[Rfam]
RNA: RT-18 RNA
RNA sequence: CACCCCAUGGUGAAAAUUAGGCCGUAAAGAGCAAGGUUUAGUAGGUUUACUCUCGAACCACCUUGAGGCUAAUAAGAAG
Numbered sequence: 001c002a003c004c005c006c007a008u009g010g011u012g013a014a015a016a017u018u019a020g021g022c023c024g025u026a027a028a029g030a031g032c033a034a035g036g037u038u039u040a041g042u043a044g045g046u047u048u049a050c051u052c053u054c055g056a057a058c059c060a061c062c063u064u065g066a067g068g069c070u071a072a073u074a075a076g077a078a079g
Base pairs, nucleotide, nucleotide: 001012002011003010004009020070021069022068023067032065033064034063035062036061037060044054045053